[Rfam]
RNA: U7 small nuclear RNA
RNA sequence: AUGUGUCUAAAUCUCUUUUAAAAUUUGUCUAGCUUUUUGAAUGUGAUAUUCAAAGUACAG
Numbered sequence: 001a002u003g004u005g006u007c008u009a010a011a012u013c014u015c016u017u018u019u020a021a022a023a024u025u026u027g028u029c030u031a032g033c034u035u036u037u038u039g040a041a042u043g044u045g046a047u048a049u050u051c052a053a054a055g056u057a058c059a060g
Stems, first nucleotide, its partner, number of pairs: 035055008